A member of the RNA family "mir-663 microRNA precursor family" from Gorilla gorilla, 90 nucleotides long. The base pairs follow the family's consensus structure, which was predicted with RNAalifold. For this family Rfam cites "Computational identification of novel microRNA homologs in the chimpanzee genome" (Baev et al., Comput Biol Chem, 2009). Lineage of the source: Eukaryota > Deuterostomia > Gnathostomata > Catarrhini > Gorilla gorilla. The family has 6 seed sequences and 102 matches in Rfam 15.1.
[Rfam]
RNA sequence: CAGUCCGGCUUCCUAGGUGGGGCGCCGCGGGACCUCCCUCAUAUCUGUGGCGGUGGAAUCCCGUGGCCAUGUUUUCCUGGUGGCACGGCC
Numbered sequence: 001c002a003g004u005c006c007g008g009c010u011u012c013c014u015a016g017g018u019g020g021g022g023c024g025c026c027g028c029g030g031g032a033c034c035u036c037c038c039u040c041a042u043a044u045c046u047g048u049g050g051c052g053g054u055g056g057a058a059u060c061c062c063g064u065g066g067c068c069a070u071g072u073u074u075u076c077c078u079g080g081u082g083g084c085a086c087g088g089c090c
Base pairs, nucleotide, nucleotide: 005088006087007086011083012082013080014079015078016077017076019073020072022070024067025066026065027064028063029062030061031060032059033053034052036050037049038047